[Rfam]
RNA sequence: UCAGAAGUUUGAGGCCACAGCUGAAGUGCUCAUGGUGCAGCCCUGUUGGAUUCCAAUGAAUCUGGAAAUUCUACU
Numbered sequence: 001u002c003a004g005a006a007g008u009u010u011g012a013g014g015c016c017a018c019a020g021c022u023g024a025a026g027u028g029c030u031c032a033u034g035g036u037g038c039a040g041c042c043c044u045g046u047u048g049g050a051u052u053c054c055a056a057u058g059a060a061u062c063u064g065g066a067a068a069u070u071c072u073a074c075u
Base pairs, nucleotide, nucleotide: 011043013042014041015040019075020074023071024070025069026038027037028036047064048063049062050061051060052059053058

A member of the RNA family "Mammalian CPEB3 ribozyme" from Alligator mississippiensis, 75 nucleotides long. The literature on the family includes a 2004 paper in Nature by Teixeira et al., "Autocatalytic RNA cleavage in the human beta-globin pre-mRNA promotes transcription termination". Taxonomically the source falls in Alligator (Eukaryota, Sauropsida, Archosauria, Alligatoridae).